[Rfam]
RNA sequence: AGUCGAUAAUACUAAACCAUUCGUGAGAAUGGGGCGGAAAGCCUACAGGGUCUUACUGAGACAGCCGGGUUGCCGAA
Numbered sequence: 001a002g003u004c005g006a007u008a009a010u011a012c013u014a015a016a017c018c019a020u021u022c023g024u025g026a027g028a029a030u031g032g033g034g035c036g037g038a039a040a041g042c043c044u045a046c047a048g049g050g051u052c053u054u055a056c057u058g059a060g061a062c063a064g065c066c067g068g069g070u071u072g073c074c075g076a077a
Stems, first nucleotide, its partner, number of pairs: 012037002017032006040071004048066002050062003
RNA: c-di-GMP-I riboswitch aptamer
Organism: Geobacter metallireducens